[Rfam]
RNA sequence: AUUUAAAUGAAUAGUAUUCCGUAGACAGUAGGUGCCUAAAGCUUAACGUAAAUCAACCUACCGAGGAUCAAAUAUAAAGAUGAAUUUAUUUGGUCUCUCCAUGUCUACGGAGAGGCUUAUUUUUUAUAAAC
Numbered sequence: 001a002u003u004u005a006a007a008u009g010a011a012u013a014g015u016a017u018u019c020c021g022u023a024g025a026c027a028g029u030a031g032g033u034g035c036c037u038a039a040a041g042c043u044u045a046a047c048g049u050a051a052a053u054c055a056a057c058c059u060a061c062c063g064a065g066g067a068u069c070a071a072a073u074a075u076a077a078a079g080a081u082g083a084a085u086u087u088a089u090u091u092g093g094u095c096u097c098u099c100c101a102u103g104u105c106u107a108c109g110g111a112g113a114g115g116c117u118u119a120u121u122u123u124u125u126a127u128a129a130a131c
Base pairs, nucleotide, nucleotide: 028061029060030059031058032057033056034042035041093116094115095114096113097112098111099110100109102107

Source information
Ribosomal protein L10 leader: a 131-nucleotide RNA from Clostridium acetireducens. It is annotated as a cis-regulatory leader. The family's consensus secondary structure was predicted with CMfinder. Lineage of the source: Bacteria > Bacillati > Clostridia > Clostridiaceae > Clostridium acetireducens. About the family: This family is a putative r-protein leader autoregulatory structure found in B. subtilis and other low-GC Gram-positive bacteria.